[Rfam]
RNA sequence: GGCUGUCGACUCUUCACAACGGAUCGUCCGGCACGUACCUGCCGGUGAGAGAGGAAAAA
Number, nucleotide and partner (000 for none) at each position: 001g000002g000003c000004u000005g000006u000007c000008g000009a000010c051011u050012c049013u048014u000015c047016a046017c000018a000019a000020c000021g000022g000023a000024u000025c000026g000027u000028c045029c044030g043031g042032c041033a040034c000035g000036u000037a000038c000039c000040u033041g032042c031043c030044g029045g028046u016047g015048a013049g012050a011051g010052a000053g000054g000055a000056a000057a000058a000059a000
About this RNA
The family of this 59-nucleotide RNA is "msiK RNA". The family's consensus secondary structure is taken from published work. It is one of the family's seed sequences.